[Rfam]
RNA sequence: AGCAUAUGAUGAAAAUCAGGUCCGUGUUUCUGAUACAGCUUGAUGUUAAAUGCCUCCUGAUGCU
Numbered sequence: 001a002g003c004a005u006a007u008g009a010u011g012a013a014a015a016u017c018a019g020g021u022c023c024g025u026g027u028u029u030c031u032g033a034u035a036c037a038g039c040u041u042g043a044u045g046u047u048a049a050a051u052g053c054c055u056c057c058u059g060a061u062g063c064u
Stems, first nucleotide, its partner, number of pairs: 001064004
RNA: Small nucleolar RNA SNORD18